[Rfam]
RNA: Histone 3' UTR stem-loop
Organism: Camelus dromedarius
RNA sequence: ACAAAGGCCCUUUUCAGGGCCGCCCACACAGUCAUGAAAGAGCUGU
Numbered sequence: 001a002c003a004a005a006g007g008c009c010c011u012u013u014u015c016a017g018g019g020c021c022g023c024c025c026a027c028a029c030a031g032u033c034a035u036g037a038a039a040g041a042g043c044u045g046u
Base pairs, nucleotide, nucleotide: 006021007020008019009018010017011016